[Rfam]
RNA sequence: AGUGAACUCGACUGUAAGUCGCUUUGGAUAAAAGCGUCUGCUAAAUGGCAUAUU
Numbered sequence: 001a002g003u004g005a006a007c008u009c010g011a012c013u014g015u016a017a018g019u020c021g022c023u024u025u026g027g028a029u030a031a032a033a034g035c036g037u038c039u040g041c042u043a044a045a046u047g048g049c050a051u052a053u054u
Base pairs, nucleotide, nucleotide: 013043014041015040016039020036021035022034023033024032025031